Shown here is a 69-nucleotide RNA from Bombyx mori, a member of the family "mir-2774 microRNA precursor family".
For this family Rfam cites "MicroRNAs of Bombyx mori identified by Solexa sequencing" (Liu et al., BMC Genomics, 2010).
The source organism's lineage runs through Eukaryota, Endopterygota, Aparaglossata, Amphiesmenoptera and Bombyx.
A search with the family's covariance model found it, with a score of 55 bits.
RNA sequence: CGGGCGGGUGAACCGUCGUCGUCUAUCGAGCAAUUACACCCGCUCGGUGGAAGAUCUUGCCUUUGUCGU
Numbered sequence: 001c002g003g004g005c006g007g008g009u010g011a012a013c014c015g016u017c018g019u020c021g022u023c024u025a026u027c028g029a030g031c032a033a034u035u036a037c038a039c040c041c042g043c044u045c046g047g048u049g050g051a052a053g054a055u056c057u058u059g060c061c062u063u064u065g066u067c068g069u
Stems, first nucleotide, its partner, number of pairs: 004066003010060001012058001015055003022051010